[Rfam]
RNA: Bacterial large subunit ribosomal RNA, nucleotides 2028 to 2614
Organism: Kumtagia ephedrae
RNA sequence: CCUGCGGUUAGACGGAAAGACCCCGUGCACCUUUACUAUAGCUUUACAUUGGCAUUCGUAGUGGCAUGUGUAGGAUAGGUGGUAGGCUUUGAAGCCGGGGCGCCAGCCUCGGUGGAGCCACCCUUGAAAUACCACCCUUAUCUCUAUGGAUGUCUAACCGCGGCCCGUCAUCCGGGUCCGGGACAAUGUAUGGUGGGUAGUUUGACUGGGGCGGUCGCCUCCUAAAGAGUAACGGAGGCGCGCGAUGGUGGGCUCAGAACGGUCGGAAAUCGUUCGCUGAGUGCAAUGGCAUAAGCCUGCCUGACUGCGAGACUGACAAGUCGAGCAGAGACGAAAGUCGGUCAUAGUGAUCCGGUGGUCCCGCGUGGAAGGGCCAUCGCUCAACGGAUAAAAGGUACGCCGGGGAUAACAGGCUGAUGACCCCCAAGAGUCCAUAUCGACGGGGUUGUUUGGCACCUCGAUGUCGACUCAUCGCAUCCUGGGGCUGGAGCAGGUCCCAAGGGUAUGGCUGUUCGCCAUUUAAAGCGGUACGUGAGUUGGGUUCAGAACGUCGUGAGACAGUUCGGUCCCUAUCUGCCGUGGGUGUA
Numbered sequence: 001c002c003u004g005c006g007g008u009u010a011g012a013c014g015g016a017a018a019g020a021c022c023c024c025g026u027g028c029a030c031c032u033u034u035a036c037u038a039u040a041g042c043u044u045u046a047c048a049u050u051g052g053c054a055u056u057c058g059u060a061g062u063g064g065c066a067u068g069u070g071u072a073g074g075a076u077a078g079g080u081g082g083u084a085g086g087c088u089u090u091g092a093a094g095c096c097g098g099g100g101c102g103c104c105a106g107c108c109u110c111g112g113u114g115g116a117g118c119c120a121c122c123c124u125u126g127a128a129a130u131a132c133c134a135c136c137c138u139u140a141u142c143u144c145u146a147u148g149g150a151u152g153u154c155u156a157a158c159c160g161c162g163g164c165c166c167g168u169c170a171u172c173c174g175g176g177u178c179c180g181g182g183a184c185a186a187u188g189u190a191u192g193g194u195g196g197g198u199a200g201u202u203u204g205a206c207u208g209g210g211g212c213g214g215u216c217g218c219c220u221c222c223u224a225a226a227g228a229g230u231a232a233c234g235g236a237g238g239c240g241c242g243c244g245a246u247g248g249u250g251g252g253c254u255c256a257g258a259a260c261g262g263u264c265g266g267a268a269a270u271c272g273u274u275c276g277c278u279g280a281g282u283g284c285a286a287u288g289g290c291a292u293a294a295g296c297c298u299g300c301c302u303g304a305c306u307g308c309g310a311g312a313c314u315g316a317c318a319a320g321u322c323g324a325g326c327a328g329a330g331a332c333g334a335a336a337g338u339c340g341g342u343c344a345u346a347g348u349g350a351u352c353c354g355g356u357g358g359u360c361c362c363g364c365g366u367g368g369a370a371g372g373g374c375c376a377u378c379g380c381u382c383a384a385c386g387g388a389u390a391a392a393a394g395g396u397a398c399g400c401c402g403g404g405g406a407u408a409a410c411a412g413g414c415u416g417a418u419g420a421c422c423c424c425c426a427a428g429a430g431u432c433c434a435u436a437u438c439g440a441c442g443g444g445g446u447u448g449u450u451u452g453g454c455a456c457c458u459c460g461a462u463g464u465c466g467a468c469u470c471a472u473c474g475c476a477u478c479c480u481g482g483g484g485c486u487g488g489a490g491c492a493g494g495u496c497c498c499a500a501g502g503g504u505a506u507g508g509c510u511g512u513u514c515g516c517c518a519u520u521u522a523a524a525g526c527g528g529u530a531c532g533u534g535a536g537u538u539g540g541g542u543u544c545a546g547a548a549c550g551u552c553g554u555g556a557g558a559c560a561g562u563u564c565g566g567u568c569c570c571u572a573u574c575u576g577c578c579g580u581g582g583g584u585g586u587a
Base pairs, nucleotide, nucleotide: 001583002582003581004580005579006578007577008576010575011574012573014570015569022404023403024402025401027400028399029396030395031394032393033392035201036200037199038198042193043192045190046189047188048187051154052153053152054151055150056149057148058147059146060145061144063142064141066139068137078136079135080134081133082132085119086118087117094113095112096111097110098109099108100107101106158181159180160179162178163177164176165175166174167173204216205215206214207213217239218238219237220236221235222234240385242342243341248300249299250298251297252296253295254280255279257275258274259273260272261271262270281290282289305328306327307326308325311322312321313320330339331338332337353379354378355377356376357375358374359373361372362371413454414453415452417451418448419447420446421445422444423443424442428438429437465540466538467537468536469535470532471529472528473527474526475525478503479502481498482497483496484495485494486493505519506518507517508516509515546564547563548562549561550559551558552557
Dot-bracket structure: ((((((((.(((.((......((((.(((((((.((((...((.((((..(((((((((((.((.(.(.........(((((..(((......((((((((....))))))))...)))............)))))).).)).)))))))))))...(((.((((((.....))))))))).....)))).))....))))..((((.....))))((((((...........))))))(.((....((((((((.((((((.......))))))...))((......))....))))))....((((..(((......)))..)))).(((....))).))..........(((((((.((........))))))))).....)......)))))..))))))........(((.((((((((...((.......))...)))))))..))))..........(((((((((((..((.((((((......))))))...)).(((((.....))))).....)))))..)..)))).).....(((((((....))).))))....))..)))))))))))....